[Rfam]
RNA sequence: CAGAAUACAGGAUGAUCACCCCAGCUUGAACUCUCUCACUGAUCACUUGAUGAUAAUUAAAGAUCUGAUAUUCUG
Numbered sequence: 001c002a003g004a005a006u007a008c009a010g011g012a013u014g015a016u017c018a019c020c021c022c023a024g025c026u027u028g029a030a031c032u033c034u035c036u037c038a039c040u041g042a043u044c045a046c047u048u049g050a051u052g053a054u055a056a057u058u059a060a061a062g063a064u065c066u067g068a069u070a071u072u073c074u075g
Stems, first nucleotide, its partner, number of pairs: 001075007
This 75-nucleotide RNA from Jaculus jaculus belongs to the Rfam family "Small nucleolar RNA SNORD81".
Its family is annotated with RNA processing and nucleolus in the Gene Ontology.
Its Rfam clan is "SNORD26 clan".
For this family Rfam cites "Classification of gas5 as a multi-small-nucleolar-RNA (snoRNA) host gene and a member of the 5'-terminal oligopyrimidine gene family reveals common features of snoRNA host genes" (Smith and Steitz, Mol Cell Biol, 1998).